[Rfam]
Rfam assigns this 76-nucleotide sequence from Prolemur simus to the family "mir-320 microRNA precursor family". Its family is annotated with miRNA-mediated post-transcriptional gene silencing, positive regulation of stem cell proliferation and RISC complex in the Gene Ontology. Lineage of the source: Eukaryota > Euteleostomi > Mammalia > Theria > Prolemur.
RNA sequence: AGCCUGGGCAGCUUUGUCUUCCUGGUUCUUCCUGGAGUUGGGAAAAGCUGGGUUGAGAGGGCGAGGGGAAAAAAAA
Numbered sequence: 001a002g003c004c005u006g007g008g009c010a011g012c013u014u015u016g017u018c019u020u021c022c023u024g025g026u027u028c029u030u031c032c033u034g035g036a037g038u039u040g041g042g043a044a045a046a047g048c049u050g051g052g053u054u055g056a057g058a059g060g061g062c063g064a065g066g067g068g069a070a071a072a073a074a075a076a
Base pairs, nucleotide, nucleotide: 014059015058017056018055021052022051023050024049025048029044030043031042032041033040034039
A search with the family's covariance model found it, with a score of 65 bits. For this family Rfam cites "Many novel mammalian microRNA candidates identified by extensive cloning and RAKE analysis" (Berezikov et al., Genome Res, 2006).